DUF805 RNA: a 71-nucleotide sequence. The family is grouped with related families in Rfam's "DUF805 clan". Rfam 15.1 lists 281 matches to the family in 219 species. It is one of the family's seed sequences.
[Rfam]
Nucleotides: 071
Stems, first nucleotide, its partner, number of pairs: 006023004036053003043065002
Number, partner (000 for none) and nucleotide at each position: 001000u002000g003000a004000u005000a006023g007022u008021g009020g010000a011000g012000u013000u014000c015000a016000g017000a018000u019000a020009c021008c022007a023006c024000u025000u026000u027000a028000a029000u030000a031000a032000a033000c034000g035000g036053g037052g038051c039000g040000c041000a042000a043065u044064c045000c046000g047000a048000a049000a050000a051038g052037c053036c054000u055000u056000a057000u058000g059000a060000g061000u062000a063000a064044g065043a066000a067000a068000a069000u070000u071000u